[Rfam]
RNA sequence: GCUGCAUUCCAUGCUAUCGCGGUAUAAGCAAUAUACUGAGGAAAGUCCGGACAGCACAGGGCAACGUACCGGUUAACAGCCGGGUUCCGAUCACAGCGGAAACAGAUAGUGCCACAGAAAAUGACCGUCUUGCUUUAGCAGGAUAAGGGUGAAAAUGUGAGGUAAGAGCUCACAAUUUUGCAGGGCAACUUGCAGAAUGGGUAAACCUUGCGUGCUGAAAUGCUAUGUAUACCCUGAUUUUCCGCCUGCCCGGUGGAAUUUCUCCGGAAAUAUCAGGGAGGGUAAGCAGAUAGACCUGGUUAGUAAUAACCCGGCCAGAUAAAUGAUAGCACACGACAGAAUCCGGCUUACAGGUUUGCAGUAAAA
Number, nucleotide and partner (000 for none) at each position: 001g362002c361003u360004g359005c358006a357007u000008u000009c354010c353011a000012u331013g330014c329015u328016a327017u326018c325019g000020c038021g037022g036023u035024a034025u033026a032027a000028g000029c000030a000031a000032u026033a025034u024035a023036c022037u021038g020039a000040g000041g000042a000043a349044a348045g347046u000047c346048c345049g344050g343051a342052c217053a216054g215055c214056a000057c000058a000059g000060g265061g264062c000063a000064a213065c212066g211067u210068a209069c083070c082071g081072g080073u079074u000075a000076a000077c000078a000079g073080c072081c071082g070083g069084g103085u101086u100087c099088c098089g000090a000091u000092c000093a000094c000095a000096g000097c000098g088099g087100a086101a085102a000103c084104a208105g207106a000107u000108a000109g206110u205111g202112c201113c200114a000115c000116a000117g000118a000119a000120a000121a000122u000123g000124a000125c148126c147127g144128u143129c142130u141131u140132g139133c138134u000135u000136u000137a000138g133139c132140a131141g130142g129143a128144u127145a000146a000147g126148g125149g000150u000151g000152a000153a000154a000155a000156u174157g173158u172159g171160a170161g169162g000163u000164a000165a000166g000167a000168g000169c161170u160171c159172a158173c157174a156175a000176u197177u196178u195179u194180g193181c192182a191183g190184g189185g000186c000187a000188a000189c184190u183191u182192g181193c180194a179195g178196a177197a176198u000199g000200g113201g112202u111203a000204a000205a110206c109207c105208u104209u068210g067211c066212g065213u064214g055215c054216u053217g052218a000219a000220a000221u288222g287223c286224u285225a000226u000227g000228u000229a000230u000231a000232c278233c277234c276235u275236g274237a000238u000239u000240u000241u000242c000243c000244g000245c000246c000247u000248g000249c000250c000251c000252g000253g000254u000255g000256g000257a271258a000259u269260u268261u267262c000263u000264c061265c060266g000267g261268a260269a259270a000271u257272a000273u000274c236275a235276g234277g233278g232279a000280g000281g000282g000283u000284a000285a224286g223287c222288a221289g000290a000291u000292a000293g000294a000295c314296c313297u000298g311299g310300u309301u308302a307303g000304u000305a000306a000307u302308a301309a300310c299311c298312c000313g296314g295315c000316c000317a000318g000319a000320u000321a000322a000323a000324u000325g018326a017327u016328a015329g014330c013331a012332c000333a000334c000335g000336a000337c000338a000339g000340a000341a000342u051343c050344c049345g048346g047347c045348u044349u043350a000351c000352a000353g010354g009355u000356u000357u006358g005359c004360a003361g002362u001363a000364a000365a000366a000

The record is a 366-nucleotide sequence from Terrimonas sp., which matches "Bacterial RNase P class A" in Rfam. The family's consensus secondary structure is taken from published work. Lineage of the source: Bacteria > Bacteroidota > Chitinophagales > Chitinophagaceae > Terrimonas. Ribonuclease P (RNase P) is a ubiquitous endoribonuclease, found in archaea, bacteria and eukarya as well as chloroplasts and mitochondria.